[Rfam]
RNA: Small nucleolar RNA SNORD16
Organism: Jaculus jaculus
RNA sequence: UGCAAUGAUUUCAUAAUUUGUGACUUAGUCUGUUCUCAGUGACAGUUUGCUGUUGUCAGGAAACUGGUUUGGAUGAGGAGGUUGACAACAAUUGUUACUGAGCA
Numbered sequence: 001u002g003c004a005a006u007g008a009u010u011u012c013a014u015a016a017u018u019u020g021u022g023a024c025u026u027a028g029u030c031u032g033u034u035c036u037c038a039g040u041g042a043c044a045g046u047u048u049g050c051u052g053u054u055g056u057c058a059g060g061a062a063a064c065u066g067g068u069u070u071g072g073a074u075g076a077g078g079a080g081g082u083u084g085a086c087a088a089c090a091a092u093u094g095u096u097a098c099u100g101a102g103c104a
Stems, first nucleotide, its partner, number of pairs: 001104003021087002024084001030072003039064002041057005